[Rfam]
RNA sequence: UCGUAACGCACUUCUUGGGCGUUUCCUCCCUAAACUCAGGCCGUGCCCUCUGGCACGGCCUUUUUCUUUGGCCGU
Dot-bracket structure: .......((.(.....).))..................(((((((((....)))))))))...............

Shown here is a 75-nucleotide sequence from Rhodospirillum centenum, a member of the family "Makes More Granules Regulator RNA (mmgR)".
About the family: SuhB later renamed mmgR (makes more granules regulator) was a putative non-coding RNA found multiple times in the Agrobacterium tumefaciens genome and related alpha-proteobacteria. Other non-coding RNAs uncovered in the same analysis include: speF, ybhL, metA, and serC.Several studies inSinorhizobium meliloti showed that suhB element is indeed a non-coding RNA:firstly it was detected on Northern blot and called Sm8RNA, secondly in an RNAseq study referred to as SmelC689.The mutant phenotype's (strain lacking the small RNA) cytoplasm contains higher content of polyhydroxybutyrate (PBH)storage granules than wild type strain.
Pairs were carried over by alignment from the consensus structure.
Lineage of the source: Bacteria > Alphaproteobacteria > Rhodospirillales > Rhodospirillum > Rhodospirillum centenum.
Clan: suhB sRNA clan.
Gene Ontology terms of the family: protein binding, response to nitrogen compound and DNA-templated transcription, termination.